[Rfam]
RNA sequence: GCCGAGCUGGGUAGCAUCAGCUUGUAAUUCAAGCAAGGGCGUCAAGGUGAUGGGAUUUGGCUUAAUUUCACAUGGUAGGGCUGCAGGUUGCGGUCUACUGGCUUGCCCAUUCCGAGCUGGGAGUUGGGCUGAGUGGAUUAGGAGAAGGACUGGUCUAAACAGCCCCUGAAGAGAAGGGCAUUGUGUCAGGUUGGCUUCACAGAGCAGCGAAUACCUCCCGCCCUCGGCAGUGGAAGGAUAACAAGUCGGGGCAUCCUCAGUCCAUCAUUACCCUUUGGGGGGAGCUCAAUCGGACUAUUACCUUU
Numbered sequence: 001g002c003c004g005a006g007c008u009g010g011g012u013a014g015c016a017u018c019a020g021c022u023u024g025u026a027a028u029u030c031a032a033g034c035a036a037g038g039g040c041g042u043c044a045a046g047g048u049g050a051u052g053g054g055a056u057u058u059g060g061c062u063u064a065a066u067u068u069c070a071c072a073u074g075g076u077a078g079g080g081c082u083g084c085a086g087g088u089u090g091c092g093g094u095c096u097a098c099u100g101g102c103u104u105g106c107c108c109a110u111u112c113c114g115a116g117c118u119g120g121g122a123g124u125u126g127g128g129c130u131g132a133g134u135g136g137a138u139u140a141g142g143a144g145a146a147g148g149a150c151u152g153g154u155c156u157a158a159a160c161a162g163c164c165c166c167u168g169a170a171g172a173g174a175a176g177g178g179c180a181u182u183g184u185g186u187c188a189g190g191u192u193g194g195c196u197u198c199a200c201a202g203a204g205c206a207g208c209g210a211a212u213a214c215c216u217c218c219c220g221c222c223c224u225c226g227g228c229a230g231u232g233g234a235a236g237g238a239u240a241a242c243a244a245g246u247c248g249g250g251g252c253a254u255c256c257u258c259a260g261u262c263c264a265u266c267a268u269u270a271c272c273c274u275u276u277g278g279g280g281g282g283a284g285c286u287c288a289a290u291c292g293g294a295c296u297a298u299u300a301c302c303u304u305u
Base pairs, nucleotide, nucleotide: 001040002039003038004023005022006021007020008019009018010017028037029036044304045303046302047301048300049299050298051297052296053295056292058288059287060286061284062283063282066279068278069277070276072274074272075271076270077269078263079262080261081260082259083258086255089253090252098249099248100247101246102245103244104243105242107237108236110235111234112233113232114231116228117227118226119225120224121223123221124220126165127164128163129162130161131160134157135156136155137154138153139152140151141150166171173218175216176215177214182211184209185208186207191202192201193200
Plant signal recognition particle RNA: a 305-nucleotide RNA sequence from Carnegiea gigantea. Taxonomically the source falls in Carnegiea (Eukaryota, Euphyllophyta, eudicotyledons, Echinocereeae). Rfam links the family to the GO terms SRP-dependent cotranslational protein targeting to membrane, signal sequence recognition and signal recognition particle, endoplasmic reticulum targeting.